[Rfam]
RNA: Lysine riboswitch aptamer
RNA sequence: CGGGAAGAUAGAGGCGCGGCUGACAAAAGUAGCGCGUUCGCACCGGCACAGGAAGCCGGAGCGCGCGAAAGGGGAUGCCGCCGAAGUGGAAACGGUUCCUGUGCCGUUUGCCGCUGGUUCGUCGGAGAAGAUCCGCCGGACUGUCACGUAUGUGGAGCGCUAUCGAGGUC
Numbered sequence: 001c002g003g004g005a006a007g008a009u010a011g012a013g014g015c016g017c018g019g020c021u022g023a024c025a026a027a028a029g030u031a032g033c034g035c036g037u038u039c040g041c042a043c044c045g046g047c048a049c050a051g052g053a054a055g056c057c058g059g060a061g062c063g064c065g066c067g068a069a070a071g072g073g074g075a076u077g078c079c080g081c082c083g084a085a086g087u088g089g090a091a092a093c094g095g096u097u098c099c100u101g102u103g104c105c106g107u108u109u110g111c112c113g114c115u116g117g118u119u120c121g122u123c124g125g126a127g128a129a130g131a132u133c134c135g136c137c138g139g140a141c142u143g144u145c146a147c148g149u150a151u152g153u154g155g156a157g158c159g160c161u162a163u164c165g166a167g168g169u170c
Base pairs, nucleotide, nucleotide: 007164008163009162010161011160016081017080018079019078020077024073032066033065034064035063036062037061038060039059085115086114087113088112089111090109091108092107093106094105095104096103116142117141118140119139120138121137123135124134125133126132144155145154146153147152